[Rfam]
RNA sequence: UUCAUAAUACAAGCGCCCGGACUGUUCCCGGUCGGAGAAGAGGAACAGUUGACGAGGAGGAGGUUCAUCGAUGGAUCGGCGGAUGCCUCCCGGUUGCCUGUCACAACCGAAAAUCCCGGUUUAAACCACAGAGGCGACUCUGUGCCCAACAGCCUGGAUGAUGACGGCC
Numbered sequence: 001u002u003c004a005u006a007a008u009a010c011a012a013g014c015g016c017c018c019g020g021a022c023u024g025u026u027c028c029c030g031g032u033c034g035g036a037g038a039a040g041a042g043g044a045a046c047a048g049u050u051g052a053c054g055a056g057g058a059g060g061a062g063g064u065u066c067a068u069c070g071a072u073g074g075a076u077c078g079g080c081g082g083a084u085g086c087c088u089c090c091c092g093g094u095u096g097c098c099u100g101u102c103a104c105a106a107c108c109g110a111a112a113a114u115c116c117c118g119g120u121u122u123a124a125a126c127c128a129c130a131g132a133g134g135c136g137a138c139u140c141u142g143u144g145c146c147c148a149a150c151a152g153c154c155u156g157g158a159u160g161a162u163g164a165c166g167g168c169c
Stems, first nucleotide, its partner, number of pairs: 020050008059090005068079004091109006113159004118154002127144007
Shown here is a 169-nucleotide RNA from Salibacterium qingdaonense, a member of the family "glmS glucosamine-6-phosphate activated ribozyme aptamer". Taxonomically the source falls in Salibacterium (Bacteria, Bacillati, Bacilli, Caryophanales). A search with the family's covariance model found it, with a score of 113 bits. Rfam classes the family as a riboswitch. From the family's description: This entry contains a glucosamine-6-phosphate activated ribozyme that is found in the mRNA for GlmS. GlmS is an enzyme that uses fructose-6-phosphate and glutamine to generate glucosamine-6-phosphate.